[Rfam]
RNA sequence: GAAGUACAUCAAGAGAGGCUCAAAUUUGGGUCCGGCAACCUGGGAUGGACACCCAAGGUGCUCGCUUGCCUAGUAGGUGAGGAUGCGGUUUCGGAAGAAACAAUGAAGUGUCCGGCGG
Numbered sequence: 001g002a003a004g005u006a007c008a009u010c011a012a013g014a015g016a017g018g019c020u021c022a023a024a025u026u027u028g029g030g031u032c033c034g035g036c037a038a039c040c041u042g043g044g045a046u047g048g049a050c051a052c053c054c055a056a057g058g059u060g061c062u063c064g065c066u067u068g069c070c071u072a073g074u075a076g077g078u079g080a081g082g083a084u085g086c087g088g089u090u091u092c093g094g095a096a097g098a099a100a101c102a103a104u105g106a107a108g109u110g111u112c113c114g115g116c117g118g
Base pairs, nucleotide, nucleotide: 007085008084009083010082015033017032018031019030020029021028034062035061036060039058040057041056042054043053044052047112048111088101089100090099091098

The family of this 118-nucleotide sequence is "SAM-I/IV (S-adenosyl methionine) riboswitch aptamer". The family is grouped with related families in Rfam's "SAM clan". The sequence is in the family's curated seed alignment. A reference for the family is Weinberg et al. (2008), "The aptamer core of SAM-IV riboswitches mimics the ligand-binding site of SAM-I riboswitches", RNA.